[Rfam]
RNA sequence: GACAAGAGUAGAAGCGUUCAGCAGCGCACGCACCAUCCCCGUGCGCCCGCCCGGAAAUUGCUCUUGAG
Numbered sequence: 001g002a003c004a005a006g007a008g009u010a011g012a013a014g015c016g017u018u019c020a021g022c023a024g025c026g027c028a029c030g031c032a033c034c035a036u037c038c039c040c041g042u043g044c045g046c047c048c049g050c051c052c053g054g055a056a057a058u059u060g061c062u063c064u065u066g067a068g
Stems, first nucleotide, its partner, number of pairs: 005064006015053001018055002021050002024046007
Dot-bracket structure: ....((((((....[..((.((.(((((((.........)))))))..))..]))...))))))....
RNA: Xanthine riboswitch aptamer (NMT1 RNA)